[Rfam]
RNA sequence: UCGGCAACAUCCGGCAGGAGUUGCACGACUGAAAUCAAGCGAGUAAAAGCCAUCAAACAGGAUCUGCUUCGAGCCCUUAGGGACGGAGACAGAGGU
Numbered sequence: 001u002c003g004g005c006a007a008c009a010u011c012c013g014g015c016a017g018g019a020g021u022u023g024c025a026c027g028a029c030u031g032a033a034a035u036c037a038a039g040c041g042a043g044u045a046a047a048a049g050c051c052a053u054c055a056a057a058c059a060g061g062a063u064c065u066g067c068u069u070c071g072a073g074c075c076c077u078u079a080g081g082g083a084c085g086g087a088g089a090c091a092g093a094g095g096u
Stems, first nucleotide, its partner, number of pairs: 001028003004024005010019002064092003067088005074082002

pan motif: a 96-nucleotide RNA sequence from Desmospora activa. The family's consensus secondary structure is taken from published work. The match comes from Rfam's covariance-model search (50 bits). Lineage of the source: Bacteria > Bacillota > Bacilli > Desmospora > Desmospora activa.